[Rfam]
RNA sequence: GGCCUAGUGGUGCAACGGAUAACGCGUCUGACUACGAAUUAGAAGAUUCCAGGUUCGAAUCCUGGCAAGGUCG
Numbered sequence: 001g002g003c004c005u006a007g008u009g010g011u012g013c014a015a016c017g018g019a020u021a022a023c024g025c026g027u028c029u030g031a032c033u034a035c036g037a038a039u040u041a042g043a044a045g046a047u048u049c050c051a052g053g054u055u056c057g058a059a060u061c062c063u064g065g066c067a068a069g070g071u072c073g
Stems, first nucleotide, its partner, number of pairs: 001072005007066001010025003027043005049065005
tRNA: a 73-nucleotide RNA from Homarus americanus. It is annotated as a transfer RNA. The family's consensus secondary structure is taken from published work. Rfam 15.1 lists 5,335,975 matches to the family in 14,413 species.